Record summary
This 75-nucleotide RNA from Saccharothrix sp. ST-888 belongs to the Rfam family "ASpks TB sRNA". It is annotated as an antisense RNA. For this family Rfam cites "Identification of small RNAs in Mycobacterium tuberculosis" (Arnvig and Young, Mol Microbiol, 2009). NCBI's taxonomy places the organism under Bacteria, Bacillati, Actinomycetes, Pseudonocardiaceae, Saccharothrix. Pairs were carried over by alignment from the consensus structure, which is taken from published work.
RNA sequence: CUUCACAGAGCCCAGCCACAGCGGCCGGUCCUCCGACCGCUCCUGGCCGUAGGGGGCCAGCAGCGCCUGCGCCUC
Numbered sequence: 001c002u003u004c005a006c007a008g009a010g011c012c013c014a015g016c017c018a019c020a021g022c023g024g025c026c027g028g029u030c031c032u033c034c035g036a037c038c039g040c041u042c043c044u045g046g047c048c049g050u051a052g053g054g055g056g057c058c059a060g061c062a063g064c065g066c067c068u069g070c071g072c073c074u075c
Stems, first nucleotide, its partner, number of pairs: 015025003031071001033069001038065002043060003047056002